[Rfam]
RNA: MIR1888 microRNA precursor family
Organism: Arabidopsis thaliana
RNA sequence: CCAAAUUCUUAGGCUAAGAUUUGUGAAGAAAAGGCUCUUAUAUAAGAGCUUUUACUCUUAUAUUUAAGUUUUUUCUUCCCAAAUCUUAGAUUAAGAUUUGG
Numbered sequence: 001c002c003a004a005a006u007u008c009u010u011a012g013g014c015u016a017a018g019a020u021u022u023g024u025g026a027a028g029a030a031a032a033g034g035c036u037c038u039u040a041u042a043u044a045a046g047a048g049c050u051u052u053u054a055c056u057c058u059u060a061u062a063u064u065u066a067a068g069u070u071u072u073u074u075c076u077u078c079c080c081a082a083a084u085c086u087u088a089g090a091u092u093a094a095g096a097u098u099u100g101g
Stems, first nucleotide, its partner, number of pairs: 001101007009093001012092002014089010025078012040063007